[Rfam]
RNA sequence: GCGCCUGUUGUAUAAUGGUAUUACCUUAGCCUUCCAAGCUAAAGACGUCGGUUCGAUUCCGAUCAGGCGCU
Numbered sequence: 001g002c003g004c005c006u007g008u009u010g011u012a013u014a015a016u017g018g019u020a021u022u023a024c025c026u027u028a029g030c031c032u033u034c035c036a037a038g039c040u041a042a043a044g045a046c047g048u049c050g051g052u053u054c055g056a057u058u059c060c061g062a063u064c065a066g067g068c069g070c071u
Stems, first nucleotide, its partner, number of pairs: 001070007010024003026042005047063005
Background: A member of the RNA family "tRNA" from an Olavius algarvensis spirochete endosymbiont, 71 nucleotides long. The family's consensus secondary structure is taken from published work. A search with the family's covariance model found it, with a score of 65 bits. It is annotated as a transfer RNA. The organism belongs to Spirochaetales, within Bacteria.